[Rfam]
RNA sequence: GUAAUCGUGAGGUUACAUCUGGAGGAAGCGACCCUACAAAACUUGGUACCGACGAACAGGAAUCGCAUAUGAGGCAUAAAUGCACGGGUAAGUAAGCAGAUCAUUAUAAAGCCCAUAAGAAUACCAAAAGUGAACUAAUGUAGAUGCGGCAGGAAUCAAGUGAAAGAAGAUGUU
Numbered sequence: 001g002u003a004a005u006c007g008u009g010a011g012g013u014u015a016c017a018u019c020u021g022g023a024g025g026a027a028g029c030g031a032c033c034c035u036a037c038a039a040a041a042c043u044u045g046g047u048a049c050c051g052a053c054g055a056a057c058a059g060g061a062a063u064c065g066c067a068u069a070u071g072a073g074g075c076a077u078a079a080a081u082g083c084a085c086g087g088g089u090a091a092g093u094a095a096g097c098a099g100a101u102c103a104u105u106a107u108a109a110a111g112c113c114c115a116u117a118a119g120a121a122u123a124c125c126a127a128a129a130g131u132g133a134a135c136u137a138a139u140g141u142a143g144a145u146g147c148g149g150c151a152g153g154a155a156u157c158a159a160g161u162g163a164a165a166g167a168a169g170a171u172g173u174u
Base pairs, nucleotide, nucleotide: 001016002015003014004013005012006011028174031171037166041161042160043159044158045157046156047154049152051150063149064148065147066146067145068144074141075140076139079136081134083132084131086114087113088112089111092107093106094105095104
Group II catalytic intron D1-D4-3: a 174-nucleotide RNA sequence from Zobellia galactanivorans. The source organism's lineage runs through Bacteria, Bacteroidota, Flavobacteriia, Flavobacteriaceae and Zobellia. It scores 128 bits against the family's covariance model. Rfam links the family to the GO term Group II intron splicing.